[Rfam]
RNA sequence: AAAGGUAAGGACCUCAUGCUUGGGUAUCAGCUGUUGCCUUAGCGUGCUAGAGUCUUCAAAGAGCCACUGCUGACUUUAUUCACUGGCUGUGGGCUGGCACAGUCAGUCACCAAGUUAGUGACAUGG
Numbered sequence: 001a002a003a004g005g006u007a008a009g010g011a012c013c014u015c016a017u018g019c020u021u022g023g024g025u026a027u028c029a030g031c032u033g034u035u036g037c038c039u040u041a042g043c044g045u046g047c048u049a050g051a052g053u054c055u056u057c058a059a060a061g062a063g064c065c066a067c068u069g070c071u072g073a074c075u076u077u078a079u080u081c082a083c084u085g086g087c088u089g090u091g092g093g094c095u096g097g098c099a100c101a102g103u104c105a106g107u108c109a110c111c112a113a114g115u116u117a118g119u120g121a122c123a124u125g126g
Stems, first nucleotide, its partner, number of pairs: 002056002004053001006051001009048002015046006023038004070118007082107005088101004